[Rfam]
RNA sequence: GCGGUACCGGUUCACUGCCCGAGCGGAAGCGACGGCAGACCCGGCGACC
Numbered sequence: 001g002c003g004g005u006a007c008c009g010g011u012u013c014a015c016u017g018c019c020c021g022a023g024c025g026g027a028a029g030c031g032a033c034g035g036c037a038g039a040c041c042c043g044g045c046g047a048c049c
Stems, first nucleotide, its partner, number of pairs: 003049003007044004015038005

The family of this 49-nucleotide RNA sequence from Glycomyces buryatensis is "L31-Actinobacteria ribosomal protein leader". NCBI's taxonomy places the organism under Bacteria, Bacillati, Actinomycetota, Actinomycetes, Glycomyces. By type it is a cis-regulatory leader. A reference for the family is Eckert and Weinberg (2020), "Discovery of 20 novel ribosomal leader candidates in bacteria and archaea", BMC Microbiol.